[Rfam]
Rfam assigns this 56-nucleotide sequence from Paracoccus seriniphilus to the family "sul1 RNA". By type it is a riboswitch. The source organism's lineage runs through Bacteria, Pseudomonadati, Rhodobacterales, Paracoccaceae and Paracoccus.
RNA sequence: CAUGGACCCGGUGAGAUUCCGGGUGGCUCUUCCGGCCGCUGAUCCGCCGGAUAAAC
Numbered sequence: 001c002a003u004g005g006a007c008c009c010g011g012u013g014a015g016a017u018u019c020c021g022g023g024u025g026g027c028u029c030u031u032c033c034g035g036c037c038g039c040u041g042a043u044c045c046g047c048c049g050g051a052u053a054a055a056c
Base pairs, nucleotide, nucleotide: 006024007023008022009021010020011019031051032050033049034048035047036046